The family of this 79-nucleotide RNA sequence from Aerobium aerolatum is "S-element". Rfam describes the family as follows. This family represents a group of S-elements from p42d and related plasmids. The S-element has multiple functions and is believed to act as a negative regulator of repC transcription, be required for efficient replication and act as a translational enhancer of repC. The source organism's lineage runs through Bacteria, Alphaproteobacteria, Hyphomicrobiales, Aerobium and Aerobium aerolatum. It is annotated as a cis-regulatory element. For this family Rfam cites "Two discrete elements are required for the replication of a repABC plasmid: an antisense RNA and a stem-loop structure" (Venkova-Canova et al., Mol Microbiol, 2004). Rfam links the family to the GO terms translation regulator activity and mRNA transcription. It scores 51 bits against the family's covariance model.

[Rfam]
RNA sequence: CGUCAAGAGUCUUUUUGGCUCCAUCGCGCCGUUUUGGCGAGCGGAUUUCUUUUGCCUGAAAGAAGGUGGGAGAAAAAUG
Numbered sequence: 001c002g003u004c005a006a007g008a009g010u011c012u013u014u015u016u017g018g019c020u021c022c023a024u025c026g027c028g029c030c031g032u033u034u035u036g037g038c039g040a041g042c043g044g045a046u047u048u049c050u051u052u053u054g055c056c057u058g059a060a061a062g063a064a065g066g067u068g069g070g071a072g073a074a075a076a077a078u079g
Stems, first nucleotide, its partner, number of pairs: 010073005027068004032064004039057001041055005